The record is a 103-nucleotide RNA sequence from Streptomyces sp. TS71-3, which matches "che1 RNA" in Rfam.

[Rfam]
RNA sequence: UGGACAGGGGGGUCCUUACCGUUUUCGCGGUAGGGCCUGUCCGGAAGGUUGCGUACGUGCGUGAAGCGCAGCCAAAGUGGUUGUCGCUCGGGGGUGAUCGCCG
Numbered sequence: 001u002g003g004a005c006a007g008g009g010g011g012g013u014c015c016u017u018a019c020c021g022u023u024u025u026c027g028c029g030g031u032a033g034g035g036c037c038u039g040u041c042c043g044g045a046a047g048g049u050u051g052c053g054u055a056c057g058u059g060c061g062u063g064a065a066g067c068g069c070a071g072c073c074a075a076a077g078u079g080g081u082u083g084u085c086g087c088u089c090g091g092g093g094g095u096g097a098u099c100g101c102c103g
Stems, first nucleotide, its partner, number of pairs: 001043008014035009047073008
The match comes from Rfam's covariance-model search (80 bits). Rfam classes the family as a small RNA.